Annotation
The family of this 52-nucleotide RNA sequence from Xaviernesmea oryzae is "DUF3800-VI RNA". The match comes from Rfam's covariance-model search (41 bits). The family's RNA type in Rfam is cis-regulatory element. Lineage of the source: Bacteria > Pseudomonadota > Alphaproteobacteria > Rhizobiaceae > Xaviernesmea. The base pairs follow the family's consensus structure, which is taken from published work.
[Rfam]
RNA sequence: AAGCCGGGAGUGCUGAUCCGUCGGUGCGCUGAACGAUUGUUUCACCUGGCUU
Numbered sequence: 001a002a003g004c005c006g007g008g009a010g011u012g013c014u015g016a017u018c019c020g021u022c023g024g025u026g027c028g029c030u031g032a033a034c035g036a037u038u039g040u041u042u043c044a045c046c047u048g049g050c051u052u
Stems, first nucleotide, its partner, number of pairs: 001052008010027006030044003033040001